[Rfam]
RNA sequence: CCUCGAUAAAGGCAAACUCAUUGAAAGAUGAGGACGCAAAGCUACGGGUCUAACGCAUCACCAAAUGCUAUGACCGCCGAGCUGCCGAA
Numbered sequence: 001c002c003u004c005g006a007u008a009a010a011g012g013c014a015a016a017c018u019c020a021u022u023g024a025a026a027g028a029u030g031a032g033g034a035c036g037c038a039a040a041g042c043u044a045c046g047g048g049u050c051u052a053a054c055g056c057a058u059c060a061c062c063a064a065a066u067g068c069u070a071u072g073a074c075c076g077c078c079g080a081g082c083u084g085c086c087g088a089a
Stems, first nucleotide, its partner, number of pairs: 012037002017032006040083004045079003048074003055068004
This 89-nucleotide RNA sequence from Filobacillus milosensis belongs to the Rfam family "c-di-GMP-I riboswitch aptamer". Pairs were carried over by alignment from the consensus structure, which is taken from published work. Taxonomically the source falls in Filobacillus (Bacteria, Bacilli, Caryophanales, Bacillaceae).